[Rfam]
RNA sequence: AAAUGAAUUAAGAGGCAACUCUUAACUGGCCAAUUAGGGAAAAAUCGAGAGAUUCAAGCCUAGGGGGCAGAAAGCUCCGCGAAGUAGCGCUAAAAUCACGGAGCGGGGGCAUGGCGGUAGCGCAUAAAACGACGUGCCAA
Dot-bracket structure: .......(((((((....)))))))(((.((..(((((....((((....))))....)))))..)))))...((((((.(.....[[[[[.....).))))))...((((((.((..]]]]]......)).))))))..
This 140-nucleotide RNA sequence belongs to the Rfam family "IMES-2 RNA motif".
Pairs were carried over by alignment from the consensus structure, which is taken from published work.
Rfam's curators put it in the seed alignment.
The literature on the family includes a 2009 paper in Nature by Weinberg et al., "Exceptional structured noncoding RNAs revealed by bacterial metagenome analysis".